[Rfam]
A member of the RNA family "Group II catalytic intron D1-D4-7" from Pseudomonas sp. BAY1663, 148 nucleotides long. Rfam 15.1 lists 1,296 matches to the family in 705 species. About the family: Group II introns are found in rRNA, tRNA and mRNA of organelles in fungi, plants and protists, and also in mRNA in bacteria. A search with the family's covariance model found it, with a score of 112 bits. Pairs were carried over by alignment from the consensus structure. The literature on the family includes a 2001 paper in Trends Genet by Bonen and Vogel, "The ins and outs of group II introns".

RNA sequence: CCGACUGUUCCACCACUCGUUCCCUACCCAGACAGGCGUGGCCGGUAACAGCCGGGUCUGAAGCUCUGGGACAAUGUUACCGCCGAUAUUUCGGUAGGUCGAACCGCGAGGCCAGACUGAAUCUGCCAGCAUCAAGGCGGAGAUUAGC
Numbered sequence: 001c002c003g004a005c006u007g008u009u010c011c012a013c014c015a016c017u018c019g020u021u022c023c024c025u026a027c028c029c030a031g032a033c034a035g036g037c038g039u040g041g042c043c044g045g046u047a048a049c050a051g052c053c054g055g056g057u058c059u060g061a062a063g064c065u066c067u068g069g070g071a072c073a074a075u076g077u078u079a080c081c082g083c084c085g086a087u088a089u090u091u092c093g094g095u096a097g098g099u100c101g102a103a104c105c106g107c108g109a110g111g112c113c114a115g116a117c118u119g120a121a122u123c124u125g126c127c128a129g130c131a132u133c134a135a136g137g138c139g140g141a142g143a144u145u146a147g148c
Base pairs, nucleotide, nucleotide: 002019003018004017006015007014028069029068030067031066032065033060034059035058036057037056039054040053041052042051044049082095083094084093085092086091097118098117099116100115104111105110122141123140124139125138126137127136